[Rfam]
RNA sequence: AGAGGAGUAAAUAGGAUACCUCAUAUAAUCUUGGGAAUAAGGCCCAUAAGUUUCUACCUGACGACCAUUAAUCGUCGGACUAUGAGGGGGAAAGUCGUGUUC
Dot-bracket structure: ..................(((((((...(..((((.......))))..)........(((((((.......)))))))..)))))))...............